[Rfam]
RNA: MIR408 microRNA precursor family
RNA sequence: GGAUGUGAAACAGAACAAGACAGGGAACAGACAGAGCAUGGAUGGAGCUUUCGACAGAAAGUGAACCUGUUGUGGCUCUACUCAUGCACUGCCUCUUCCCUGGCUCACUCUCUAACCCCUUCC
Numbered sequence: 001g002g003a004u005g006u007g008a009a010a011c012a013g014a015a016c017a018a019g020a021c022a023g024g025g026a027a028c029a030g031a032c033a034g035a036g037c038a039u040g041g042a043u044g045g046a047g048c049u050u051u052c053g054a055c056a057g058a059a060a061g062u063g064a065a066c067c068u069g070u071u072g073u074g075g076c077u078c079u080a081c082u083c084a085u086g087c088a089c090u091g092c093c094u095c096u097u098c099c100c101u102g103g104c105u106c107a108c109u110c111u112c113u114a115a116c117c118c119c120u121u122c123c
Stems, first nucleotide, its partner, number of pairs: 018105002021102007029094002032091003036087006045078002